[Rfam]
RNA sequence: CCGCUGGUCCGGGCCCCUCUGGCGAAAGCUUCGGCACUUUCGCGAUGUCGGACCAUUUCC
Numbered sequence: 001c002c003g004c005u006g007g008u009c010c011g012g013g014c015c016c017c018u019c020u021g022g023c024g025a026a027a028g029c030u031u032c033g034g035c036a037c038u039u040u041c042g043c044g045a046u047g048u049c050g051g052a053c054c055a056u057u058u059c060c
Stems, first nucleotide, its partner, number of pairs: 006054007022043007

Notes: Shown here is a 60-nucleotide RNA sequence from Rhizobium sp. BG4, a member of the family "terC RNA". Rfam 15.1 lists 1,112 matches to the family in 772 species. The match comes from Rfam's covariance-model search (64 bits).